[Rfam]
RNA sequence: UAACCGAACAUGUAAGUGUUCGCUGAACUAUCAGAAGUCAGCCGAAGCCGUAGUACUAGAUAUUUCUAGGAUAUCUAGGAAGGGC
Numbered sequence: 001u002a003a004c005c006g007a008a009c010a011u012g013u014a015a016g017u018g019u020u021c022g023c024u025g026a027a028c029u030a031u032c033a034g035a036a037g038u039c040a041g042c043c044g045a046a047g048c049c050g051u052a053g054u055a056c057u058a059g060a061u062a063u064u065u066c067u068a069g070g071a072u073a074u075c076u077a078g079g080a081a082g083g084g085c
Stems, first nucleotide, its partner, number of pairs: 001025002005022007038045002047085003056078006
Group II catalytic intron D1-D4-1: an 85-nucleotide RNA sequence from Virgibacillus indicus.
The pairing is the family consensus, mapped onto this sequence.
Rfam 15.1 lists 2,508 matches to the family in 1,144 species.